[Rfam]
RNA sequence: UCUGGGUCACAGAUUCAUGGAGAUAGAAAUGCAUUAUGUUUCUCAAAAUAUUUUUUGAGAAGAAAAAACAACUUAAAAUGACUGAGAUCCAGA
Numbered sequence: 001u002c003u004g005g006g007u008c009a010c011a012g013a014u015u016c017a018u019g020g021a022g023a024u025a026g027a028a029a030u031g032c033a034u035u036a037u038g039u040u041u042c043u044c045a046a047a048a049u050a051u052u053u054u055u056u057g058a059g060a061a062g063a064a065a066a067a068a069c070a071a072c073u074u075a076a077a078a079u080g081a082c083u084g085a086g087a088u089c090c091a092g093a
Stems, first nucleotide, its partner, number of pairs: 001093007
Dot-bracket structure: (((((((...............................................................................)))))))
RNA: Small nucleolar RNA snoR27